[Rfam]
RNA sequence: AGAGACAAGUAGAAGCACCCGCUUCUCACCUGAUUGACGCUUCAAGCAGUUGGCAGGUUAUUAUUUCCUUUGUUUUCUUAGGAGACGUGUGGGUGCAGUAUGUGUACCGACACUUUUUUUAUGCU
Numbered sequence: 001a002g003a004g005a006c007a008a009g010u011a012g013a014a015g016c017a018c019c020c021g022c023u024u025c026u027c028a029c030c031u032g033a034u035u036g037a038c039g040c041u042u043c044a045a046g047c048a049g050u051u052g053g054c055a056g057g058u059u060a061u062u063a064u065u066u067c068c069u070u071u072g073u074u075u076u077c078u079u080a081g082g083a084g085a086c087g088u089g090u091g092g093g094u095g096c097a098g099u100a101u102g103u104g105u106a107c108c109g110a111c112a113c114u115u116u117u118u119u120u121a122u123g124c125u
Stems, first nucleotide, its partner, number of pairs: 011026006028058003036051003039047002088112003092108006

Ribosomal protein L20 leader: a 125-nucleotide sequence from Halobacillus halophilus. The organism belongs to Halobacillus halophilus, within Bacteria. Its family is annotated with regulation of gene expression in the Gene Ontology. This family is a putative r-protein leader autoregulatory structure found in B. subtilis and other low-GC Gram-positive bacteria. It is located in the 5' untranslated regions of mRNAs encoding initiation factor 3 followed by ribosomal proteins L35 and L20 (infC-rpmI-rplT). A Rho-independent transcription terminator structure that is probably involved in regulation is included at the 3' end.